[Rfam]
Rfam assigns this 87-nucleotide RNA sequence from Gossypium laxum to the family "MIR7486 microRNA precursor family". The family has 9 seed sequences and 10,132 matches in Rfam 15.1. The match comes from Rfam's covariance-model search (74 bits). Its family is annotated with RISC complex and miRNA-mediated post-transcriptional gene silencing in the Gene Ontology.

RNA sequence: CACGUCAGCGCGCUUUGCUGACAUGGACACAAACCGCGAUUACGUGGACGCGAUUUUAUGCCACAUCAGCAAACCGCGCUGACGUGG
Numbered sequence: 001c002a003c004g005u006c007a008g009c010g011c012g013c014u015u016u017g018c019u020g021a022c023a024u025g026g027a028c029a030c031a032a033a034c035c036g037c038g039a040u041u042a043c044g045u046g047g048a049c050g051c052g053a054u055u056u057u058a059u060g061c062c063a064c065a066u067c068a069g070c071a072a073a074c075c076g077c078g079c080u081g082a083c084g085u086g087g
Base pairs, nucleotide, nucleotide: 001086002085003084004083005082006081007080008079009078010077011076012075014073015072016071017070018069019068020067021066024063025062026061031056032055033054035052036051037050038049040047041046